[Rfam]
RNA sequence: GUGAUGGUAUCGAAAGAGCUAUACACAUUCUAGAAUAAAUGCCUAAAAUUUAAUAUGUUCUCUGCUUUGAGCCUUAGUUGACAAAGACGGAUAU
Numbered sequence: 001g002u003g004a005u006g007g008u009a010u011c012g013a014a015a016g017a018g019c020u021a022u023a024c025a026c027a028u029u030c031u032a033g034a035a036u037a038a039a040u041g042c043c044u045a046a047a048a049u050u051u052a053a054u055a056u057g058u059u060c061u062c063u064g065c066u067u068u069g070a071g072c073c074u075u076a077g078u079u080g081a082c083a084a085a086g087a088c089g090g091a092u093a094u
Stems, first nucleotide, its partner, number of pairs: 001026003004022005010017002062090003065086005072080001
Rfam assigns this 94-nucleotide sequence from Alkalithermobacter paradoxus to the family "pan motif". It is annotated as a cis-regulatory element. It scores 46 bits against the family's covariance model.